[Rfam]
RNA sequence: GAUCUACUGACUGCUAAAGACAGGCAUCCGUGAGCGAGACACGGGUAGAUA
Numbered sequence: 001g002a003u004c005u006a007c008u009g010a011c012u013g014c015u016a017a018a019g020a021c022a023g024g025c026a027u028c029c030g031u032g033a034g035c036g037a038g039a040c041a042c043g044g045g046u047a048g049a050u051a
Base pairs, nucleotide, nucleotide: 002050003049004048005047006046007045011023012022019035025038028044029043030042031041032040